Rfam assigns this 128-nucleotide RNA sequence from Burkholderia dolosa to the family "Manganese Mn2+ riboswitch aptamer (yybP-ykoY)".
Pairs were carried over by alignment from the consensus structure.
A search with the family's covariance model found it, with a score of 52 bits.
On this family, see Argaman et al., Curr Biol 2001: "Novel small RNA-encoding genes in the intergenic regions of Escherichia coli".

RNA sequence: CUAGAAUGCGCGCCUCAUUGGGGAGUAGCCGCUCCGCUCGAUGCCCCGCGCCGCGGCGCGCAUCGUGACGGAGGCGUCCGUCAACAGACUUGGCCGUUCGGCCAUGGCGGGCGCAGCCACCGAGGCCU
Numbered sequence: 001c002u003a004g005a006a007u008g009c010g011c012g013c014c015u016c017a018u019u020g021g022g023g024a025g026u027a028g029c030c031g032c033u034c035c036g037c038u039c040g041a042u043g044c045c046c047c048g049c050g051c052c053g054c055g056g057c058g059c060g061c062a063u064c065g066u067g068a069c070g071g072a073g074g075c076g077u078c079c080g081u082c083a084a085c086a087g088a089c090u091u092g093g094c095c096g097u098u099c100g101g102c103c104a105u106g107g108c109g110g111g112c113g114c115a116g117c118c119a120c121c122g123a124g125g126c127c128u
Base pairs, nucleotide, nucleotide: 033072034071035070074114075113076112077111078110079109080108081107082106083105091104092103093102094101095100